Small Cajal body specific RNA 11: a 141-nucleotide RNA from Eubucco bourcierii. Gene Ontology terms of the family: nucleolus, Cajal body and RNA processing. By type it is a small Cajal body RNA. The source organism's lineage runs through Eukaryota, Deuterostomia, Neognathae, Coraciimorphae and Eubucco.

RNA sequence: GUGUCCUGACCCUCAUCUUUGCUUUUCCCCUCACCGGAGCUGUGGUGCUGGGGUUUUGGGGCGGACACAGAUCAACUUACCUCUCAUGUUAGGAGGGCUACCAAAGAUGUGUGGAAGCCCUUAAAGGCAGGAGAGGACACC
Numbered sequence: 001g002u003g004u005c006c007u008g009a010c011c012c013u014c015a016u017c018u019u020u021g022c023u024u025u026u027c028c029c030c031u032c033a034c035c036g037g038a039g040c041u042g043u044g045g046u047g048c049u050g051g052g053g054u055u056u057u058g059g060g061g062c063g064g065a066c067a068c069a070g071a072u073c074a075a076c077u078u079a080c081c082u083c084u085c086a087u088g089u090u091a092g093g094a095g096g097g098c099u100a101c102c103a104a105a106g107a108u109g110u111g112u113g114g115a116a117g118c119c120c121u122u123a124a125a126g127g128c129a130g131g132a133g134a135g136g137a138c139a140c141c
Base pairs, nucleotide, nucleotide: 002067003066004065005064006063010060011059027053028052029050032047033046034045080136081135082134083133084132085131089126090125093122094121095120096119097118098117099116101114102113103112105110